Shown here is a 74-nucleotide RNA from Ornithorhynchus anatinus, a member of the family "mir-1421 microRNA precursor family". Pairs were carried over by alignment from the consensus structure, which was predicted with RNAalifold. Taxonomically the source falls in Ornithorhynchus (Eukaryota, Eumetazoa, Bilateria, Dipnotetrapodomorpha). A search with the family's covariance model found it, with a score of 79 bits. Its family is annotated with miRNA-mediated post-transcriptional gene silencing and RISC complex in the Gene Ontology.
RNA sequence: CGGUGUGAGGAGGUCGUAUGUCAUGCAGAGUGAUGGCAGAAUAUACUGCACUGUGAGCGACCUCCUUACACAGC
Numbered sequence: 001c002g003g004u005g006u007g008a009g010g011a012g013g014u015c016g017u018a019u020g021u022c023a024u025g026c027a028g029a030g031u032g033a034u035g036g037c038a039g040a041a042u043a044u045a046c047u048g049c050a051c052u053g054u055g056a057g058c059g060a061c062c063u064c065c066u067u068a069c070a071c072a073g074c
Base pairs, nucleotide, nucleotide: 003071004070005069006068007067009065010064011063012062013061014060015059016058017057019055020054021053024050025049026048027047